[Rfam]
RNA sequence: AUUCUUAUGAAUAUACUGCAGGGCCUUCAUCAAGACCCAGUGAACAAUUUUUGGGACCCUAUUCUUUGAAUAGGGUA
Numbered sequence: 001a002u003u004c005u006u007a008u009g010a011a012u013a014u015a016c017u018g019c020a021g022g023g024c025c026u027u028c029a030u031c032a033a034g035a036c037c038c039a040g041u042g043a044a045c046a047a048u049u050u051u052u053g054g055g056a057c058c059c060u061a062u063u064c065u066u067u068g069a070a071u072a073g074g075g076u077a
Stems, first nucleotide, its partner, number of pairs: 021038003025034003056076009
RNA: SmY spliceosomal RNA
Organism: Caenorhabditis brenneri